[Rfam]
RNA: mir-9014 microRNA precursor family
RNA sequence: GGAGCCAUGGGGAGGGAUCCCAAUUCAGCCUCAGGAAAAGAAACCUGCCAUGGGAGUCUUGGAGAUUGGCGACUGUCCUAAGGACUUA
Numbered sequence: 001g002g003a004g005c006c007a008u009g010g011g012g013a014g015g016g017a018u019c020c021c022a023a024u025u026c027a028g029c030c031u032c033a034g035g036a037a038a039a040g041a042a043a044c045c046u047g048c049c050a051u052g053g054g055a056g057u058c059u060u061g062g063a064g065a066u067u068g069g070c071g072a073c074u075g076u077c078c079u080a081a082g083g084a085c086u087u088a
Stems, first nucleotide, its partner, number of pairs: 002087003006083001008081001010079004015074002018071001020069006029062002038060004044054004